[Rfam]
RNA: Alphaproteobacteria transfer-messenger RNA
Organism: Yoonia tamlensis
RNA sequence: CCCCUUGCGCCGCAGCCCGCGACCCCCUAUCUGUUAAUUGUCCUUCGGGACUAUGGAUAUAAACGCGCUCGUAAUAACCGGAUCGGACCAGGGGGCGGUACCCUGCGUCUCCACCAAUCACUCCUGUAUCAACUCUCAUUUGGGGUAUGAUUUAGGGCACAUGGGGACGAAAUAGGAUCGACGAACGUCUAAAGGGGUUUUGCUUUAUCCCGGUGAGUUACCACCGUUAUCGGUACGACAAAGCUAGUUGCAAAUGACAACAAAGCACCGAUGGCUCUCGCAGCGUAAGCUGUGCGAAAUAUCGAAACCUUAAGCCCAUAGGCUUGCAGUCUAUGGCGGGGUCCGCAGGUACCUGGCAACAGAAACCUGCACU
Numbered sequence: 001c002c003c004c005u006u007g008c009g010c011c012g013c014a015g016c017c018c019g020c021g022a023c024c025c026c027c028u029a030u031c032u033g034u035u036a037a038u039u040g041u042c043c044u045u046c047g048g049g050a051c052u053a054u055g056g057a058u059a060u061a062a063a064c065g066c067g068c069u070c071g072u073a074a075u076a077a078c079c080g081g082a083u084c085g086g087a088c089c090a091g092g093g094g095g096c097g098g099u100a101c102c103c104u105g106c107g108u109c110u111c112c113a114c115c116a117a118u119c120a121c122u123c124c125u126g127u128a129u130c131a132a133c134u135c136u137c138a139u140u141u142g143g144g145g146u147a148u149g150a151u152u153u154a155g156g157g158c159a160c161a162u163g164g165g166g167a168c169g170a171a172a173u174a175g176g177a178u179c180g181a182c183g184a185a186c187g188u189c190u191a192a193a194g195g196g197g198u199u200u201u202g203c204u205u206u207a208u209c210c211c212g213g214u215g216a217g218u219u220a221c222c223a224c225c226g227u228u229a230u231c232g233g234u235a236c237g238a239c240a241a242a243g244c245u246a247g248u249u250g251c252a253a254a255u256g257a258c259a260a261c262a263a264a265g266c267a268c269c270g271a272u273g274g275c276u277c278u279c280g281c282a283g284c285g286u287a288a289g290c291u292g293u294g295c296g297a298a299a300u301a302u303c304g305a306a307a308c309c310u311u312a313a314g315c316c317c318a319u320a321g322g323c324u325u326g327c328a329g330u331c332u333a334u335g336g337c338g339g340g341g342u343c344c345g346c347a348g349g350u351a352c353c354u355g356g357c358a359a360c361a362g363a364a365a366c367c368u369g370c371a372c373u
Stems, first nucleotide, its partner, number of pairs: 040051004055210005065203002067198004079187002083184003089105005106169007211226004217236002220234003339354004345370006